[Rfam]
RNA: Plant signal recognition particle RNA
RNA sequence: GCUGGGGGGAGUCACGUCCCCUUGUCACCCAAGUGGGGGCUGAUAGUUGGAAGUUCAGCAUGAUACCAUCGGUCCAGGCGGUCUGCGUCGAUGGCGUGUCCGCUCUGAGCCUACAGUCGGUAACGGCCCUUCCCUGACGGGGGGCGGUCGUGGCUGAUGCUUAACCCGGGACCGCGUGAGGCAGUCACCUGAGCAGCGAACACGGGUAGCUGCGGGCGGCAGACGGGUCGCAUGCCUGAGUGGGCGCCUGGGCCACCCGAUGGGUCCUCUGAGGGGCAACCAACUGUU
Numbered sequence: 001g002c003u004g005g006g007g008g009g010a011g012u013c014a015c016g017u018c019c020c021c022u023u024g025u026c027a028c029c030c031a032a033g034u035g036g037g038g039g040c041u042g043a044u045a046g047u048u049g050g051a052a053g054u055u056c057a058g059c060a061u062g063a064u065a066c067c068a069u070c071g072g073u074c075c076a077g078g079c080g081g082u083c084u085g086c087g088u089c090g091a092u093g094g095c096g097u098g099u100c101c102g103c104u105c106u107g108a109g110c111c112u113a114c115a116g117u118c119g120g121u122a123a124c125g126g127c128c129c130u131u132c133c134c135u136g137a138c139g140g141g142g143g144g145c146g147g148u149c150g151u152g153g154c155u156g157a158u159g160c161u162u163a164a165c166c167c168g169g170g171a172c173c174g175c176g177u178g179a180g181g182c183a184g185u186c187a188c189c190u191g192a193g194c195a196g197c198g199a200a201c202a203c204g205g206g207u208a209g210c211u212g213c214g215g216g217c218g219g220c221a222g223a224c225g226g227g228u229c230g231c232a233u234g235c236c237u238g239a240g241u242g243g244g245c246g247c248c249u250g251g252g253c254c255a256c257c258c259g260a261u262g263g264g265u266c267c268u269c270u271g272a273g274g275g276g277c278a279a280c281c282a283a284c285u286g287u288u
Stems, first nucleotide, its partner, number of pairs: 001040003004023007028037003042288009053277002055274002058270001060268001062266002066263005071254009081245003093236007100226002104223004109217004114212004118156004123151006130144003134141002157162001164207005175198003182191003